The family of this 127-nucleotide RNA sequence from Castor canadensis is "Small nucleolar RNA SNORA27". By type it is an H/ACA-box small nucleolar RNA. Rfam's curators write: ACA27 is a member of the H/ACA class of snoRNA that guide the sites of modification of uridines to pseudouridines.
RNA sequence: AUACCCCCUUUCUCUUUGCCAUUUGGACUUAAAUCUUUAUUGGUCAUUCAAGUAGGGCAAAGGAAAAUAACCUUUUAAAACUCAGGCAAACUAAGUGUUUUCCUGUAACCUUUCAGAGGAGACAAAC
Number, nucleotide and partner (000 for none) at each position: 001a000002u000003a000004c000005c000006c000007c000008c000009u000010u000011u000012c000013u000014c000015u000016u000017u000018g000019c000020c000021a000022u000023u000024u000025g000026g000027a000028c000029u000030u000031a000032a000033a000034u057035c056036u055037u000038u000039a000040u051041u050042g049043g048044u000045c000046a000047u000048u043049c042050a041051a040052g000053u000054a000055g036056g035057g034058c000059a000060a000061a000062g000063g000064a000065a000066a000067a000068u000069a000070a000071c119072c118073u117074u116075u115076u000077a000078a000079a000080a000081c000082u000083c105084a104085g103086g102087c000088a100089a099090a098091c097092u000093a000094a000095g000096u000097g091098u090099u089100u088101u000102c086103c085104u084105g083106u000107a000108a000109c000110c000111u000112u000113u000114c000115a075116g074117a073118g072119g071120a000121g000122a000123c000124a000125a000126a000127c000
The pairing is the family consensus, mapped onto this sequence. A search with the family's covariance model found it, with a score of 112 bits.